[Rfam]
RNA sequence: UGCCGGGCUGAUAGCUCCCAAUACAAGACCCUUCGGGGGAAUAAGAGCAGCGCACCGUGUGGCGUAGUUGAGGCCCGGCAUUUCCUCA
Numbered sequence: 001u002g003c004c005g006g007g008c009u010g011a012u013a014g015c016u017c018c019c020a021a022u023a024c025a026a027g028a029c030c031c032u033u034c035g036g037g038g039g040a041a042u043a044a045g046a047g048c049a050g051c052g053c054a055c056c057g058u059g060u061g062g063c064g065u066a067g068u069u070g071a072g073g074c075c076c077g078g079c080a081u082u083u084c085c086u087c088a
Stems, first nucleotide, its partner, number of pairs: 001080008014048004020042001029038003050065004